This 270-nucleotide RNA sequence from Paraphaeosphaeria minitans belongs to the Rfam family "Fungal signal recognition particle RNA". The family has 50 seed sequences and 748 matches in Rfam 15.1. The family's consensus secondary structure is taken from published work. The source organism's lineage runs through Eukaryota, Fungi, Ascomycota, dothideomyceta and Paraphaeosphaeria. It scores 140 bits against the family's covariance model.
RNA sequence: UACCUGUGAUGGGUCCAAAUUUCAGGAGAUAGGCCGUAAUCUCACAUGCGCCUCCCAAGUAUCUACUCUAGUAGGAGCCCAGUUCGAGUCCGGUGGUGGCCGUUUUCUCACUCGCUUGGGUAACCAGCGAUGCUGAGCGGCCCUAAGCAAUGAAUACAAUUAGACGAGGGAAGCAAUUCUGCAGUCGGGUAUUCACCAUUGGACGGCGGCGCUGGAUUACUCUAACUAGGGUUGGGAAGUGUAAGCGAGGUGGCUGUUCAACUGAUUUUU
Number, nucleotide and partner (000 for none) at each position: 001u000002a014003c013004c012005u000006g000007u000008g000009a000010u000011g000012g004013g003014u002015c000016c000017a268018a267019a266020u265021u264022u000023c000024a000025g000026g000027a000028g259029a258030u000031a000032g255033g000034c253035c252036g251037u000038a000039a000040u000041c000042u248043c247044a000045c245046a000047u243048g242049c241050g240051c239052c000053u237054c236055c235056c000057a000058a067059g066060u065061a000062u000063c000064u000065a060066c059067u058068c000069u228070a227071g226072u225073a000074g223075g222076a221077g220078c000079c215080c214081a213082g212083u211084u209085c208086g207087a000088g204089u203090c202091c201092g200093g199094u198095g197096g196097u000098g142099g000100c140101c139102g138103u000104u137105u136106u135107c000108u000109c132110a131111c000112u130113c129114g128115c127116u126117u000118g125119g124120g000121u000122a000123a000124c119125c118126a116127g115128c114129g113130a112131u110132g109133c000134u000135g106136a105137g104138c102139g101140g100141c000142c098143c147144u000145a000146a000147g143148c000149a000150a000151u195152g194153a193154a192155u191156a190157c189158a000159a000160u000161u188162a000163g186164a185165c184166g000167a000168g000169g000170g179171a178172a177173g000174c000175a000176a000177u172178u171179c170180u000181g000182c000183a000184g165185u164186c163187g000188g161189g157190u156191a155192u154193u153194c152195a151196c096197c095198a094199u093200u092201g091202g090203a089204c088205g000206g000207c086208g085209g084210c000211g083212c082213u081214g080215g079216a000217u000218u000219a000220c077221u076222c075223u074224a000225a072226c071227u070228a069229g000230g000231g000232u000233u000234g000235g055236g054237a053238a000239g051240u050241g049242u048243a047244a000245g045246c000247g043248a042249g000250g000251u036252g035253g034254c000255u032256g000257u000258u029259c028260a000261a000262c000263u000264g021265a020266u019267u018268u017269u000270u000